[Rfam]
RNA sequence: UGCCUGGGGCAGUCUGGAAGACUUGUGAUUUUGUUGUAUCCAAUAAGGGGAGCAGACAACAAAUCCCGGUCUCCGCAUUGCCCCGGGCA
Numbered sequence: 001u002g003c004c005u006g007g008g009g010c011a012g013u014c015u016g017g018a019a020g021a022c023u024u025g026u027g028a029u030u031u032u033g034u035u036g037u038a039u040c041c042a043a044u045a046a047g048g049g050g051a052g053c054a055g056a057c058a059a060c061a062a063a064u065c066c067c068g069g070u071c072u073c074c075g076c077a078u079u080g081c082c083c084c085g086g087g088c089a
Stems, first nucleotide, its partner, number of pairs: 002088007010080004015075003019072005025067001027065005033060005

The record is an 89-nucleotide RNA from Chauna torquata, which matches "mir-7 microRNA precursor family" in Rfam. The family's consensus secondary structure was predicted with PFOLD. This family represents the microRNA (miRNA) precursor mir-7. On this family, see Lagos-Quintana et al., Science 2001: "Identification of novel genes coding for small expressed RNAs".